[Rfam]
RNA: Mammalian CPEB3 ribozyme
Organism: Alligator mississippiensis
Nucleotides: 078
Base pairs, nucleotide, nucleotide: 013046014045017044018043019042022078023077024076025075026074027073029041030040050067052065053064054063055062
Number, partner (000 for none) and nucleotide at each position: 001000a002000g003000a004000u005000c006000g007000c008000a009000a010000g011000c012000u013046g014045g015000a016000a017044g018043c019042c020000a021000u022078a023077g024076c025075a026074g027073a028000u029041g030040c031000a032000c033000u034000a035000a036000u037000g038000g039000g040030g041029c042019g043018g044017c045014c046013c047000u048000g049000u050067c051000a052065g053064a054063u055062u056000c057000c058000a059000g060000c061000a062055a063054a064053u065052c066000c067050g068000c069000a070000a071000a072000u073027u074026c075025u076024g077023u078022u